[Rfam]
RNA: tRNA
RNA sequence: GGCAAGGUGGCAGAUGGUUUAAUGCGCUAAAUUGUAAAUUUAUUUAUAAAGGUUUAAGUCCUUUCUUUGUCA
Dot-bracket structure: (((((((..(((..........)))..((((.......)))).....(((((.......)))))))))))).
Numbered sequence: 001g002g003c004a005a006g007g008u009g010g011c012a013g014a015u016g017g018u019u020u021a022a023u024g025c026g027c028u029a030a031a032u033u034g035u036a037a038a039u040u041u042a043u044u045u046a047u048a049a050a051g052g053u054u055u056a057a058g059u060c061c062u063u064u065c066u067u068u069g070u071c072a
Stems, first nucleotide, its partner, number of pairs: 001071007010025003028042004048064005